The family of this 300-nucleotide RNA from Podarcis muralis is "Metazoan signal recognition particle RNA". Rfam classes the family as a non-coding RNA gene. A reference for the family is Wild et al. (2002), "Towards the structure of the mammalian signal recognition particle", Curr Opin Struct Biol. The family's consensus secondary structure is taken from published work. Taxonomically the source falls in Podarcis (Eukaryota, Teleostomi, Tetrapoda, Lacertidae). It scores 281 bits against the family's covariance model. Its Rfam clan is "SRP clan".

[Rfam]
RNA sequence: GCCGGGCGCGGUGGCGCGUGCCUGUAAUCCAGCUACUCCUGGAGGCUGAGUCUGGCGGAUCGCUUGAGCUCAGGAGUUCGGGGCUGCUGUGGGCUAUGCCGAUCGGGUGUCCGCACUAAGUUCGGCAUCAAUAUGGCGAGCCCCGGGGAGCCGAGGCGCGCCAGGUUGCCCAAGGAGGGGUGAACCGGCCCAGGUCGGAAACGGAGCAGGUCAAAACUCCCGUGCCGAUCAGUAGUGGGACCGCGCCUGUGAAUAGCCGCUGCAGCCUCGCCUGGGCAACACAGCGAAACCCAGACUCUU
Numbered sequence: 001g002c003c004g005g006g007c008g009c010g011g012u013g014g015c016g017c018g019u020g021c022c023u024g025u026a027a028u029c030c031a032g033c034u035a036c037u038c039c040u041g042g043a044g045g046c047u048g049a050g051u052c053u054g055g056c057g058g059a060u061c062g063c064u065u066g067a068g069c070u071c072a073g074g075a076g077u078u079c080g081g082g083g084c085u086g087c088u089g090u091g092g093g094c095u096a097u098g099c100c101g102a103u104c105g106g107g108u109g110u111c112c113g114c115a116c117u118a119a120g121u122u123c124g125g126c127a128u129c130a131a132u133a134u135g136g137c138g139a140g141c142c143c144c145g146g147g148g149a150g151c152c153g154a155g156g157c158g159c160g161c162c163a164g165g166u167u168g169c170c171c172a173a174g175g176a177g178g179g180g181u182g183a184a185c186c187g188g189c190c191c192a193g194g195u196c197g198g199a200a201a202c203g204g205a206g207c208a209g210g211u212c213a214a215a216a217c218u219c220c221c222g223u224g225c226c227g228a229u230c231a232g233u234a235g236u237g238g239g240a241c242c243g244c245g246c247c248u249g250u251g252a253a254u255a256g257c258c259g260c261u262g263c264a265g266c267c268u269c270g271c272c273u274g275g276g277c278a279a280c281a282c283a284g285c286g287a288a289a290c291c292c293a294g295a296c297u298c299u300u
Stems, first nucleotide, its partner, number of pairs: 001046003004023007028043003048298008060287005068277007079270009089260003093257005099251001104249007111239002114237005120230001122228007129168004134163005140157003144153003169175002177220005187212004195204003